[Rfam]
RNA sequence: UUCUUAUCCAGAGAGGCAGAGGGACUGGCCCUAUGAUGCCCGGCAACCUGAAUGAUUUUUUAUUGUUCAACGGUGCUAAUUCCAGCAGGUGUGAAACCUGGAAGAUGAGAA
Numbered sequence: 001u002u003c004u005u006a007u008c009c010a011g012a013g014a015g016g017c018a019g020a021g022g023g024a025c026u027g028g029c030c031c032u033a034u035g036a037u038g039c040c041c042g043g044c045a046a047c048c049u050g051a052a053u054g055a056u057u058u059u060u061u062a063u064u065g066u067u068c069a070a071c072g073g074u075g076c077u078a079a080u081u082c083c084a085g086c087a088g089g090u091g092u093g094a095a096a097c098c099u100g101g102a103a104g105a106u107g108a109g110a111a
Base pairs, nucleotide, nucleotide: 001111002110003109004108005107006106007105008104013041015040016039017038021031022030023029025085026084027083028082042077043076044075045074047073048072049069050068051067052066053065054064055063081103086100087099088098089097090096
Rfam assigns this 111-nucleotide RNA from Clostridium kluyveri to the family "SAM riboswitch aptamer (S box leader)". The match comes from Rfam's covariance-model search (92 bits).